[Rfam]
RNA sequence: CUGAUUUUUGGUCUUCUCUUCCUGGUUCUUCCUGGAGUUGGGAAAAAUUGGGUUGAGAGGGAAAAAAAAAGAAACA
Numbered sequence: 001c002u003g004a005u006u007u008u009u010g011g012u013c014u015u016c017u018c019u020u021c022c023u024g025g026u027u028c029u030u031c032c033u034g035g036a037g038u039u040g041g042g043a044a045a046a047a048u049u050g051g052g053u054u055g056a057g058a059g060g061g062a063a064a065a066a067a068a069a070a071g072a073a074a075c076a
Base pairs, nucleotide, nucleotide: 014059015058016057017056018055021052022051023050024049025048029044030043031042032041033040034039
Annotation: Shown here is a 76-nucleotide sequence from Sapajus apella, a member of the family "mir-320 microRNA precursor family". A search with the family's covariance model found it, with a score of 72 bits. Taxonomically the source falls in Sapajus (Eukaryota, Craniata, Teleostomi, Platyrrhini).